Rfam assigns this 58-nucleotide RNA sequence from Streptomyces gilvosporeus to the family "msiK RNA". NCBI's taxonomy places the organism under Bacteria, Bacillati, Actinomycetes, Streptomycetaceae, Streptomyces. Rfam classes the family as a cis-regulatory element.
RNA sequence: ACACCACUCCUUUUACUCGGAUCGUCCGGCACGUUCCUGCCGGUGAAGGGACUUAUCA
Numbered sequence: 001a002c003a004c005c006a007c008u009c010c011u012u013u014u015a016c017u018c019g020g021a022u023c024g025u026c027c028g029g030c031a032c033g034u035u036c037c038u039g040c041c042g043g044u045g046a047a048g049g050g051a052c053u054u055a056u057c058a
Stems, first nucleotide, its partner, number of pairs: 009050007026043006